This 110-nucleotide RNA sequence from alpha proteobacterium U9-1i belongs to the Rfam family "TPP riboswitch aptamer (THI element)". The base pairs follow the family's consensus structure, which is taken from published work. A search with the family's covariance model found it, with a score of 71 bits. The organism belongs to Alphaproteobacteria, within Bacteria.
[Rfam]
RNA sequence: UCGCAUCCUCCGGGGGGCCGCGCGAUCGCGGCUGAGAUACGGGAAGUCGCCCGUGACCCGCCGAACCUGAUCCGGGUCAUGCCGGCGAAGGGAGAGCAACAUGACACACG
Numbered sequence: 001u002c003g004c005a006u007c008c009u010c011c012g013g014g015g016g017g018c019c020g021c022g023c024g025a026u027c028g029c030g031g032c033u034g035a036g037a038u039a040c041g042g043g044a045a046g047u048c049g050c051c052c053g054u055g056a057c058c059c060g061c062c063g064a065a066c067c068u069g070a071u072c073c074g075g076g077u078c079a080u081g082c083c084g085g086c087g088a089a090g091g092g093a094g095a096g097c098a099a100c101a102u103g104a105c106a107c108a109c110g
Stems, first nucleotide, its partner, number of pairs: 006098001008096003011060004017032005039054005066091003072085004